Source information: A member of the RNA family "Fluoride riboswitch aptamer (crcB RNA motif)" from Aureimonas sp. Leaf324, 64 nucleotides long.

RNA sequence: CAUCGCUACGGGGAUGGGGUUCCCCCGCAACCGCCCGCGUCGGGCUGAUGACUCCUAUCGAAAC
Numbered sequence: 001c002a003u004c005g006c007u008a009c010g011g012g013g014a015u016g017g018g019g020u021u022c023c024c025c026c027g028c029a030a031c032c033g034c035c036c037g038c039g040u041c042g043g044g045c046u047g048a049u050g051a052c053u054c055c056u057a058u059c060g061a062a063a064c
Base pairs, nucleotide, nucleotide: 010026011025012024013023016055017054018053019052020051021050033045034044035043036042
The family's consensus secondary structure is taken from published work. The organism belongs to Aureimonas, within Bacteria.